RNA sequence: CGCUGGACUUGACCGGGGAGCCAGGCACUCCCUGUGACCCGUGCCUAAAUGCGGGGGCGACUGCCCGGUGAGGGCAACCAGGCCUUUGGCAGUCUCCAUGGAAUCGUUGAAUCUCUGUCCUUUUGGAUCGGGGGUUUAUACAUGCAUACUCAAAGGAGAAUGCAUGUAUAAUUUGCUGAAAAAACCCGCCAGGCCCGGAAGGGAGCAACGGUAUUUCAGACCGCCGAUGCUGAGAGGGUGCGGGGAGGAGAGGAAGUGGAGGGCACUACCAAAACACCUGGUCUGAUCCGGGUGUGUCCAGCA
Numbered sequence: 001c002g003c004u005g006g007a008c009u010u011g012a013c014c015g016g017g018g019a020g021c022c023a024g025g026c027a028c029u030c031c032c033u034g035u036g037a038c039c040c041g042u043g044c045c046u047a048a049a050u051g052c053g054g055g056g057g058c059g060a061c062u063g064c065c066c067g068g069u070g071a072g073g074g075c076a077a078c079c080a081g082g083c084c085u086u087u088g089g090c091a092g093u094c095u096c097c098a099u100g101g102a103a104u105c106g107u108u109g110a111a112u113c114u115c116u117g118u119c120c121u122u123u124u125g126g127a128u129c130g131g132g133g134g135u136u137u138a139u140a141c142a143u144g145c146a147u148a149c150u151c152a153a154a155g156g157a158g159a160a161u162g163c164a165u166g167u168a169u170a171a172u173u174u175g176c177u178g179a180a181a182a183a184a185c186c187c188g189c190c191a192g193g194c195c196c197g198g199a200a201g202g203g204a205g206c207a208a209c210g211g212u213a214u215u216u217c218a219g220a221c222c223g224c225c226g227a228u229g230c231u232g233a234g235a236g237g238g239u240g241c242g243g244g245g246a247g248g249a250g251a252g253g254a255a256g257u258g259g260a261g262g263g264c265a266c267u268a269c270c271a272a273a274a275c276a277c278c279u280g281g282u283c284u285g286a287u288c289c290g291g292g293u294g295u296g297u298c299c300a301g302c303a
Stems, first nucleotide, its partner, number of pairs: 002302007010060001013057002015033006038055004062294007072284004085273005091267002093262007104251002107248001112246007119237008127228005132222002134173001136171012149158003176219006186211003194203003